[Rfam]
RNA sequence: UGCCCAGCAACUCCUAUCCCUACCUCCUCGCGGUACUGGCCGGGGGUACGAGUAACCUUAGGGAAGAUCGGGUGACCAACCCCCGGUGGGAACUUUGGUCGUAUGCUGAGGGGGGG
Numbered sequence: 001u002g003c004c005c006a007g008c009a010a011c012u013c014c015u016a017u018c019c020c021u022a023c024c025u026c027c028u029c030g031c032g033g034u035a036c037u038g039g040c041c042g043g044g045g046g047u048a049c050g051a052g053u054a055a056c057c058u059u060a061g062g063g064a065a066g067a068u069c070g071g072g073u074g075a076c077c078a079a080c081c082c083c084c085g086g087u088g089g090g091a092a093c094u095u096u097g098g099u100c101g102u103a104u105g106c107u108g109a110g111g112g113g114g115g116g
Stems, first nucleotide, its partner, number of pairs: 015116001017114005022034003046104006053097002
The record is a 116-nucleotide sequence from Aedes aegypti, which matches "drz-agam-1 ribozyme" in Rfam.
The match comes from Rfam's covariance-model search (49 bits).
The base pairs follow the family's consensus structure, which is taken from published work.
For this family Rfam cites "Widespread occurrence of self-cleaving ribozymes" (Webb et al., Science, 2009).